Rfam assigns this 179-nucleotide sequence from Bacillus methanolicus to the family "Lysine riboswitch aptamer". It scores 119 bits against the family's covariance model. The family's consensus secondary structure is taken from published work. Lineage of the source: Bacteria > Bacillati > Caryophanales > Bacillus > Bacillus methanolicus. Riboswitches are metabolite binding domains within certain messenger RNAs that serve as precision sensors for their corresponding targets.
[Rfam]
RNA sequence: AGAUGAGGUAGAGGUCGCGGUGUUUAUUAGUAAAUUGUCCGAGAGUCAGAGAAACUCGAUGAAGCAAUUGAAAGGAACCACCGCCGAAGCGCCAUAAUUUCUCUGGUUAUGGCAGCUGGGGCUGUAUCCGAACAGGUGCAGAACUGUCAUGGCGUUUGCUAUGAUGAACUAUCCAUUUG
Numbered sequence: 001a002g003a004u005g006a007g008g009u010a011g012a013g014g015u016c017g018c019g020g021u022g023u024u025u026a027u028u029a030g031u032a033a034a035u036u037g038u039c040c041g042a043g044a045g046u047c048a049g050a051g052a053a054a055c056u057c058g059a060u061g062a063a064g065c066a067a068u069u070g071a072a073a074g075g076a077a078c079c080a081c082c083g084c085c086g087a088a089g090c091g092c093c094a095u096a097a098u099u100u101c102u103c104u105g106g107u108u109a110u111g112g113c114a115g116c117u118g119g120g121g122c123u124g125u126a127u128c129c130g131a132a133c134a135g136g137u138g139c140a141g142a143a144c145u146g147u148c149a150u151g152g153c154g155u156u157u158g159c160u161a162u163g164a165u166g167a168a169c170u171a172u173c174c175a176u177u178u179g
Stems, first nucleotide, its partner, number of pairs: 007173005017084006024077002033069006088117003091113008118145002122141007147164007